Mason-Pfizer monkey virus packaging signal: a 275-nucleotide RNA from Nannospalax galili. From the family's description: This family represents a group of sequences that are related to the Mason-Pfizer monkey virus (MPMV) packaging signal. By type it is a cis-regulatory element. For this family Rfam cites "Mutational analysis of the predicted secondary RNA structure of the Mason-Pfizer monkey virus packaging signal" (Mustafa et al., Virus Res, 2004). The source organism's lineage runs through Eukaryota, Amniota, Boreoeutheria, Spalacidae and Nannospalax.

RNA sequence: UGGCGCCCAGUGUGAGGGCUGGAUACGGAGGAUACAGUGAGGGAAGAAGGCAUCCCCAAGGAAUGUUCCACAACAAUUUUUCACUCUGAACUCGCCACGGGAACCUGCCUCGGCCACAACCAGAAGUAAGUACAGACGUCUGGUUAUGGGACAAGAAUUAAGCAGGCACGAACUUUAUGUUAGGCAAUUGAAAGAUGCCUUAAGUACGCAAGGAGUAAAGGUUAAAAUAGAGAAUCUAUUUAGAUUCUUUGAAUUUAUUAAGGAAACCUGUCCUU
Numbered sequence: 001u002g003g004c005g006c007c008c009a010g011u012g013u014g015a016g017g018g019c020u021g022g023a024u025a026c027g028g029a030g031g032a033u034a035c036a037g038u039g040a041g042g043g044a045a046g047a048a049g050g051c052a053u054c055c056c057c058a059a060g061g062a063a064u065g066u067u068c069c070a071c072a073a074c075a076a077u078u079u080u081u082c083a084c085u086c087u088g089a090a091c092u093c094g095c096c097a098c099g100g101g102a103a104c105c106u107g108c109c110u111c112g113g114c115c116a117c118a119a120c121c122a123g124a125a126g127u128a129a130g131u132a133c134a135g136a137c138g139u140c141u142g143g144u145u146a147u148g149g150g151a152c153a154a155g156a157a158u159u160a161a162g163c164a165g166g167c168a169c170g171a172a173c174u175u176u177a178u179g180u181u182a183g184g185c186a187a188u189u190g191a192a193a194g195a196u197g198c199c200u201u202a203a204g205u206a207c208g209c210a211a212g213g214a215g216u217a218a219a220g221g222u223u224a225a226a227a228u229a230g231a232g233a234a235u236c237u238a239u240u241u242a243g244a245u246u247c248u249u250u251g252a253a254u255u256u257a258u259u260a261a262g263g264a265a266a267c268c269u270g271u272c273c274u275u
Stems, first nucleotide, its partner, number of pairs: 006031002012026003035050001038047001083127003086123002092118001094115001096112001099109002135152001139150004159202003162198003209251008219237005260275005